This 214-nucleotide RNA sequence from Sphingomonas sabuli belongs to the Rfam family "permuted transfer-messenger RNA". Bacterial tmRNA, also known as 10Sa RNA or SsrA, is named for its dual tRNA and mRNA-like properties. Its role is to liberate the mRNA from a stalled ribosome. To accomplish this part of the tmRNA is used as a reading frame that ends in a translation stop signal. A search with the family's covariance model found it, with a score of 129 bits.
RNA sequence: GUCGGUAGACUAUCGGGUGGAAUAAGCAUUUCGGACCCGGGGGGCAGUACCCCGGCGCCUCCACCAUCACUCCAGCCGCGCUGGACUGUUGAUGGGGGCGAAACAGGAUCGACGAGUGCAAUAAAGGCCCGGUUGCCGAUCGGUAUGGAUGCCACCGUGACGGCUCAUUCACACAAGUGCCAACGAUAACGAGGCGCUCGCUAUUGCUGCGUAA
Numbered sequence: 001g002u003c004g005g006u007a008g009a010c011u012a013u014c015g016g017g018u019g020g021a022a023u024a025a026g027c028a029u030u031u032c033g034g035a036c037c038c039g040g041g042g043g044g045c046a047g048u049a050c051c052c053c054g055g056c057g058c059c060u061c062c063a064c065c066a067u068c069a070c071u072c073c074a075g076c077c078g079c080g081c082u083g084g085a086c087u088g089u090u091g092a093u094g095g096g097g098g099c100g101a102a103a104c105a106g107g108a109u110c111g112a113c114g115a116g117u118g119c120a121a122u123a124a125a126g127g128c129c130c131g132g133u134u135g136c137c138g139a140u141c142g143g144u145a146u147g148g149a150u151g152c153c154a155c156c157g158u159g160a161c162g163g164c165u166c167a168u169u170c171a172c173a174c175a176a177g178u179g180c181c182a183a184c185g186a187u188a189a190c191g192a193g194g195c196g197c198u199c200g201c202u203a204u205u206g207c208u209g210c211g212u213a214a
Stems, first nucleotide, its partner, number of pairs: 001140005015130004027118003031115003037055005056100007141157004
The family's consensus secondary structure is taken from published work.